[Rfam]
RNA sequence: UGCACGCAUGACUGUAAGUCGCUUCGGAUAAAAGUGUCUGCUAAAUGACAUAAA
Numbered sequence: 001u002g003c004a005c006g007c008a009u010g011a012c013u014g015u016a017a018g019u020c021g022c023u024u025c026g027g028a029u030a031a032a033a034g035u036g037u038c039u040g041c042u043a044a045a046u047g048a049c050a051u052a053a054a
Base pairs, nucleotide, nucleotide: 013043014041015040016039020036021035022034023033024032
Shown here is a 54-nucleotide sequence from Salmo trutta, a member of the family "UnaL2 LINE 3' element". The base pairs follow the family's consensus structure, which is taken from published work. The eel long interspersed element (LINE) UnaL2 and its partner short interspersed element (SINE) share a conserved 3' tail containing a stem-loop that is critical for their retrotransposition. Presumably, the first step of retrotransposition is the recognition of their 3' tails by UnaL2-encoded reverse transcriptase. The solution structure of a 17-nucleotide RNA derived from the 3' tail of UnaL2 was determined by NMR.